[Rfam]
Record summary: Shown here is a 142-nucleotide RNA sequence from Dryobates pubescens, a member of the family "Small nucleolar RNA SNORA12". The match comes from Rfam's covariance-model search (64 bits). It is annotated as an H/ACA-box small nucleolar RNA. The base pairs follow the family's consensus structure, which was predicted with RNAalifold. Its family is annotated with RNA processing and nucleolus in the Gene Ontology.
RNA sequence: CAGUGUGGUGGUUUCUCUGUGUGGCAGAUCUGUACCCGUGUCAGAGCGGCCCGAGACCACCACAGAGAGCAGAAAGGAGAAGGCUGUGCUGAGAGCUUCUACAAGCCUGUAGUUUUCAGCACGUUGUUCAGCUCCUACAUUA
Numbered sequence: 001c002a003g004u005g006u007g008g009u010g011g012u013u014u015c016u017c018u019g020u021g022u023g024g025c026a027g028a029u030c031u032g033u034a035c036c037c038g039u040g041u042c043a044g045a046g047c048g049g050c051c052c053g054a055g056a057c058c059a060c061c062a063c064a065g066a067g068a069g070c071a072g073a074a075a076g077g078a079g080a081a082g083g084c085u086g087u088g089c090u091g092a093g094a095g096c097u098u099c100u101a102c103a104a105g106c107c108u109g110u111a112g113u114u115u116u117c118a119g120c121a122c123g124u125u126g127u128u129c130a131g132c133u134c135c136u137a138c139a140u141u142a
Stems, first nucleotide, its partner, number of pairs: 005063007023051003027047001029045004076135004101127004